[Rfam]
RNA sequence: CUACACAUACCCUGUAGAUCCGAAAUUUGUCUUUAGAAAUUCGACAAAUUCGGUUCUAGAGAGGUUUGUGUGGU
Numbered sequence: 001c002u003a004c005a006c007a008u009a010c011c012c013u014g015u016a017g018a019u020c021c022g023a024a025a026u027u028u029g030u031c032u033u034u035a036g037a038a039a040u041u042c043g044a045c046a047a048a049u050u051c052g053g054u055u056c057u058a059g060a061g062a063g064g065u066u067u068g069u070g071u072g073g074u
Base pairs, nucleotide, nucleotide: 002072003071004070005069006068007067010064011063016057017056018055020053021052022051023050025049026048027047028046029045030044031043
RNA: mir-10 microRNA precursor family
Organism: Bemisia tabaci